[Rfam]
RNA sequence: UCACAUUCAAGCUUGGGGAAAAUCAACGCCGCGGCUGAUUUUCUUUUUUAAUAAGCAGUUUGA
Numbered sequence: 001u002c003a004c005a006u007u008c009a010a011g012c013u014u015g016g017g018g019a020a021a022a023u024c025a026a027c028g029c030c031g032c033g034g035c036u037g038a039u040u041u042u043c044u045u046u047u048u049u050a051a052u053a054a055g056c057a058g059u060u061u062g063a
Stems, first nucleotide, its partner, number of pairs: 001063003011056004016049004020041006
Shown here is a 63-nucleotide RNA sequence from Drosophila willistoni, a member of the family "Oocyte entry signal (OES) from oskar mRNA". On this family, see Jambor et al., RNA 2014: "A stem-loop structure directs oskar mRNA to microtubule minus ends". The sequence is in the family's curated seed alignment. Taxonomically the source falls in Sophophora (Eukaryota, Panarthropoda, Insecta, Drosophilidae). It is annotated as a cis-regulatory element.